U2 spliceosomal RNA: a 195-nucleotide sequence from Cyprinodon variegatus. From the family's description: U2 is a small nuclear RNA (snRNA) component of the spliceosome (involved in pre-mRNA splicing). Complementary binding between U2 snRNA (in an area lying towards the 5' end but 3' to hairpin I) and the branchpoint sequence (BPS) of the intron results the bulging out of an unpaired adenosine, on the BPS, which initiates a nucleophilic attack at the intronic 5' splice site, thus starting the first of two transesterification reactions that mediate splicing. By type it is a spliceosomal small nuclear RNA.

[Rfam]
RNA sequence: AUAUCCUUCUCAACCUUUUGGCUAAGAUCAAGUGCAUCUGUUCUUAUCUAUUCUUAUCAGUUUUUAUAUCUGAUACGUCCCCUGUCCGGGGACCAUAUAUAAAUUGCUUUUCGGAACAGGGAGAUGGAAAAGGGGCUCUGUCCACUCUACGCAUGGAUGGGUUUAAUGCAGGGAGUUCAUUUCGUUGCUCUGUAC
Number, nucleotide and partner (000 for none) at each position: 001a000002u000003a000004u000005c000006c000007u000008u027009c026010u025011c000012a023013a000014c021015c020016u000017u000018u000019u000020g015021g014022c000023u012024a000025a010026g009027a008028u000029c000030a000031a000032g000033u000034g000035c000036a000037u000038c000039u000040g000041u000042u000043c000044u000045u000046a000047u000048c000049u000050a000051u000052u000053c000054u000055u075056a074057u073058c072059a071060g070061u000062u000063u000064u000065u000066a000067u000068a000069u000070c060071u059072g058073a057074u056075a055076c000077g093078u092079c091080c090081c089082c088083u000084g000085u000086c000087c000088g082089g081090g080091g079092a078093c077094c000095a000096u000097a000098u000099a000100u000101a000102a000103a000104u000105u000106g000107c000108u000109u000110u000111u000112c000113g000114g000115a000116a000117c000118a000119g000120g148121g147122a146123g145124a000125u000126g142127g141128a000129a000130a000131a000132g139133g138134g000135g000136c000137u000138c133139u132140g000141u127142c126143c000144a000145c123146u122147c121148u120149a000150c000151g188152c187153a186154u000155g000156g183157a000158u179159g178160g177161g176162u175163u174164u173165a000166a000167u000168g000169c000170a000171g000172g000173g164174a163175g162176u161177u160178c159179a158180u000181u000182u000183c156184g000185u000186u153187g152188c151189u000190c000191u000192g000193u000194a000195c000